[Rfam]
RNA sequence: AGGCAGCCUCCCAUGCAAAUGAAAUUUGCUGAUGAGGUGUUAAUCUGCUCGAAAAUCAGCUGAUCUUUUGUUCUUCAGACUUGCUGAACCCUUCCAUGAAGCUGGUCUAGUAAAACCUAAGCACAUA
Numbered sequence: 001a002g003g004c005a006g007c008c009u010c011c012c013a014u015g016c017a018a019a020u021g022a023a024a025u026u027u028g029c030u031g032a033u034g035a036g037g038u039g040u041u042a043a044u045c046u047g048c049u050c051g052a053a054a055a056u057c058a059g060c061u062g063a064u065c066u067u068u069u070g071u072u073c074u075u076c077a078g079a080c081u082u083g084c085u086g087a088a089c090c091c092u093u094c095c096a097u098g099a100a101g102c103u104g105g106u107c108u109a110g111u112a113a114a115a116c117c118u119a120a121g122c123a124c125a126u127a
Base pairs, nucleotide, nucleotide: 002041003040004039005038007037008036009034012031013030015029016028017027065121066120067119070116071115072114077108078107079106080105081104083102084101085100088092
A member of the RNA family "Small nucleolar RNA snoR77" from Protea cynaroides, 127 nucleotides long. The family's RNA type in Rfam is H/ACA-box small nucleolar RNA.